[Rfam]
RNA sequence: CCAAUGUGGUUUUCCCCAGGAGGUCACUCUCCCCAGGACUCUGUCCAGGUGGCAUAGAGGAGCACAGGGCUCUGCCUGGUGAUGUGCAGUCUCUUCCCAUGAUGUGAGAGAUAAAGCAUGCGUCUACACUUGCAUCUUUUUGUAGUUUCCCAAGGUCCUGUGGACAAUGAUAGGGAGUCAAAUCAUGAGGGAAAUGACU
Numbered sequence: 001c002c003a004a005u006g007u008g009g010u011u012u013u014c015c016c017c018a019g020g021a022g023g024u025c026a027c028u029c030u031c032c033c034c035a036g037g038a039c040u041c042u043g044u045c046c047a048g049g050u051g052g053c054a055u056a057g058a059g060g061a062g063c064a065c066a067g068g069g070c071u072c073u074g075c076c077u078g079g080u081g082a083u084g085u086g087c088a089g090u091c092u093c094u095u096c097c098c099a100u101g102a103u104g105u106g107a108g109a110g111a112u113a114a115a116g117c118a119u120g121c122g123u124c125u126a127c128a129c130u131u132g133c134a135u136c137u138u139u140u141u142g143u144a145g146u147u148u149c150c151c152a153a154g155g156u157c158c159u160g161u162g163g164a165c166a167a168u169g170a171u172a173g174g175g176a177g178u179c180a181a182a183u184c185a186u187g188a189g190g191g192a193a194a195u196g197a198c199u
Stems, first nucleotide, its partner, number of pairs: 001108001004105004008046002011043001015037002019030004049100004059092003062087001064085003067080001129191003133187003146177003150174002155165004
RNA: Small nucleolar RNA SNORA73 family
Organism: Tupaia belangeri